[Rfam]
RNA sequence: CGCUCAUGGUUGCCUAGAACCCGCUGGCAAGGACGGGGGACCCAAAUUCGGGUGCUGCUCGCAGCAUCCUUGGGGUGAAGCCUUUCGGACUUCGGUUCGCGAGGCCGGGUGUACUCCUACCCGAACCCGACAGCUGACCUCGCAGGCGUAUUGGAGCAAACAU
Numbered sequence: 001c002g003c004u005c006a007u008g009g010u011u012g013c014c015u016a017g018a019a020c021c022c023g024c025u026g027g028c029a030a031g032g033a034c035g036g037g038g039g040a041c042c043c044a045a046a047u048u049c050g051g052g053u054g055c056u057g058c059u060c061g062c063a064g065c066a067u068c069c070u071u072g073g074g075g076u077g078a079a080g081c082c083u084u085u086c087g088g089a090c091u092u093c094g095g096u097u098c099g100c101g102a103g104g105c106c107g108g109g110u111g112u113a114c115u116c117c118u119a120c121c122c123g124a125a126c127c128c129g130a131c132a133g134c135u136g137a138c139c140u141c142g143c144a145g146g147c148g149u150a151u152u153g154g155a156g157c158a159a160a161c162a163u
Stems, first nucleotide, its partner, number of pairs: 001148004010030005034142005043072002073128003081104004107122004
RNA: c-di-AMP riboswitch aptamer (ydaO/yuaA leader)
Organism: Sanguibacter gelidistatuariae